[Rfam]
RNA: Nucleoid-associated noncoding RNA 4 (CssrE)
Organism: Escherichia coli
RNA sequence: GGCCGGAUAAGGCAUAUACGCCGCAUCCGGCAAUCGGUGCACGAUGCCUGAUGCGACGCUUGCGCGUCUUAUCAUGCC
Numbered sequence: 001g002g003c004c005g006g007a008u009a010a011g012g013c014a015u016a017u018a019c020g021c022c023g024c025a026u027c028c029g030g031c032a033a034u035c036g037g038u039g040c041a042c043g044a045u046g047c048c049u050g051a052u053g054c055g056a057c058g059c060u061u062g063c064g065c066g067u068c069u070u071a072u073c074a075u076g077c078c
Base pairs, nucleotide, nucleotide: 002031003030004029005028006027007026008025011022012021013020046077047076049074050073051072052071053070055068056067057066058065059064